This 172-nucleotide RNA sequence belongs to the Rfam family "Group II catalytic intron D1-D4-3". Pairs were carried over by alignment from the consensus structure. Rfam's curators put it in the seed alignment.
RNA sequence: UCCACCGCGAGUUGGAAUCUGAAAGAAGCCGGCGGCAAACAUCUGACCUAACGGACAGAAACUUCAUACAAGGCAUAUGACCGUGGGUAAGGUUGCAAAAAGAACCAAAGCCCUAUAGCUAUUCGGAACGGUCGGUGUAAAUGAAGUGGGUAUAAGAUGGAAAGACAAUGCC
Numbered sequence: 001u002c003c004a005c006c007g008c009g010a011g012u013u014g015g016a017a018u019c020u021g022a023a024a025g026a027a028g029c030c031g032g033c034g035g036c037a038a039a040c041a042u043c044u045g046a047c048c049u050a051a052c053g054g055a056c057a058g059a060a061a062c063u064u065c066a067u068a069c070a071a072g073g074c075a076u077a078u079g080a081c082c083g084u085g086g087g088u089a090a091g092g093u094u095g096c097a098a099a100a101a102g103a104a105c106c107a108a109a110g111c112c113c114u115a116u117a118g119c120u121a122u123u124c125g126g127a128a129c130g131g132u133c134g135g136u137g138u139a140a141a142u143g144a145a146g147u148g149g150g151u152a153u154a155a156g157a158u159g160g161a162a163a164g165a166c167a168a169u170g171c172c
Base pairs, nucleotide, nucleotide: 001016002015003014004013006011028172030170031169036164040159041158042157043156044155046151047150048149049148050147062146063145064144065143066142067141073138074137075136076135078134079133080132081131082130083129085113086112087111088110091106092105093104094103